[Rfam]
RNA sequence: AAUCGUCUUCGGGGUCGGGUGAAAUUCCCAAUCGACGGUGAUGCGCGUUAGAGCGAUAAGUCCGUGAGCUUUUUGAAGCAGGAACUGGUGAGAAUCCAGUGCCGACAGUAUAGUCUGGAUGGGAGAAGACAUGU
Numbered sequence: 001a002a003u004c005g006u007c008u009u010c011g012g013g014g015u016c017g018g019g020u021g022a023a024a025u026u027c028c029c030a031a032u033c034g035a036c037g038g039u040g041a042u043g044c045g046c047g048u049u050a051g052a053g054c055g056a057u058a059a060g061u062c063c064g065u066g067a068g069c070u071u072u073u074u075g076a077a078g079c080a081g082g083a084a085c086u087g088g089u090g091a092g093a094a095u096c097c098a099g100u101g102c103c104g105a106c107a108g109u110a111u112a113g114u115c116u117g118g119a120u121g122g123g124a125g126a127a128g129a130c131a132u133g134u
Stems, first nucleotide, its partner, number of pairs: 005130006017029003031114002033104002035065004060102002070078001084100005106117003